Overview
This 299-nucleotide RNA belongs to the Rfam family "Plant signal recognition particle RNA". Clan: SRP clan.
RNA sequence: GCCGAGCUCAGUAACGUAGGCUUAUCACCCAAGUGGGGGCAGUGAUUGGACAUGUGGUUGACUGUCUAGCUGGAUCGGUGGUUGUAAUUAACCGGCUUGCCCGUUCCAAGUGGUGAGUUGGGCCAUGUGACUCGGGCGAAGGCUUGAGCCACAUGGCUCGUAGAGUGGAGGGUAACGCGCCAGGCUGGUUUGACAGAGCAGCGAAAACUUCCCGCUCUCUACAGUGGAAGGAUAACGAACCGGUGCUUCUUCGGUCCACUUAAGCUAAAUGGUCUAGCCACUAUUGAACAAUCACUUUU
Dot-bracket structure: ((((((((.(......).)))))....(((....))))))((((((((..((((.(((((.((((.((((((((((((.(...(..(....((((.(((.((.(((((.((((.((((.((((((((((.(((((((....))))))).)))))))))).......(((((......(((....(((......)))....)))....))))).)))).))))..)))))))....))).))))).)..).))))))).....))))).))))..)))))..)).))..))))))))...